[Rfam]
RNA sequence: AGCACCUUUAAGAUUCAGUCCCGUGAGGCUGGCAAGGUGAACGACUUAGAAGACGGUUUCGUGAAGAUCGGCUAACGCAGUUCUGCGUUUGUUCGAUUUCCGCUGAAGCCGACUCUUCUCGCGACGUAACCUUUGCCUGACGGCAAAGGUUUUUUUGCAU
Number, nucleotide and partner (000 for none) at each position: 001a000002g000003c039004a038005c037006c036007u035008u034009u000010a000011a000012g000013a000014u000015u032016c031017a030018g029019u028020c027021c000022c000023g000024u000025g000026a000027g020028g019029c018030u017031g016032g015033c000034a008035a007036g006037g005038u004039g003040a000041a000042c000043g000044a000045c000046u000047u000048a000049g000050a000051a000052g000053a000054c000055g000056g000057u000058u000059u000060c000061g000062u000063g000064a000065a000066g000067a097068u096069c095070g093071g092072c091073u000074a089075a088076c087077g086078c085079a084080g000081u000082u000083c000084u079085g078086c077087g076088u075089u074090u000091g072092u071093u070094c000095g069096a068097u067098u000099u000100c000101c000102g000103c000104u000105g000106a000107a000108g000109c000110c000111g000112a000113c000114u000115c000116u000117u000118c000119u000120c000121g000122c000123g000124a155125c000126g153127u000128a151129a150130c149131c148132u147133u146134u145135g144136c143137c142138u000139g000140a000141c000142g137143g136144c135145a134146a133147a132148g131149g130150u129151u128152u000153u126154u000155u124156u000157g000158c000159a000160u000

A member of the RNA family "PyrR binding site" from Paenibacillus contaminans, 160 nucleotides long.
The family's consensus secondary structure is taken from published work.
About the family: This family represents the PyrR binding site and terminator structure.
Taxonomically the source falls in Paenibacillus (Bacteria, Bacillati, Caryophanales, Paenibacillaceae).